[Rfam]
RNA sequence: AGGCCUUCAGAGAGAGAGGCAGGGUCUGAUAUGCAGCCUCAGUGGCAGCUGUUGAUCAGCCUUUGCCUCUCUUUCUCUCCCGG
Number, nucleotide and partner (000 for none) at each position: 001a000002g000003g000004c000005c000006u000007u000008c000009a000010g075011a074012g073013a072014g071015a070016g069017a068018g067019g066020c065021a064022g063023g000024g061025u000026c059027u058028g057029a056030u055031a000032u000033g000034c051035a050036g049037c048038c000039u000040c000041a000042g000043u000044g000045g000046c000047a000048g037049c036050u035051g034052u000053u000054g000055a030056u029057c028058a027059g026060c000061c024062u000063u022064u021065g020066c019067c018068u017069c016070u015071c014072u013073u012074u011075c010076u000077c000078u000079c000080c000081c000082g000083g000
Rfam assigns this 83-nucleotide sequence from Myotis brandtii to the family "mir-574 microRNA precursor family". The family's consensus secondary structure was predicted with RNAalifold. The source organism's lineage runs through Eukaryota, Deuterostomia, Vertebrata, Tetrapoda and Myotis. It scores 81 bits against the family's covariance model. The family has 6 seed sequences and 4,084 matches in Rfam 15.1. For this family Rfam cites "Patterns of known and novel small RNAs in human cervical cancer" (Lui et al., Cancer Res, 2007).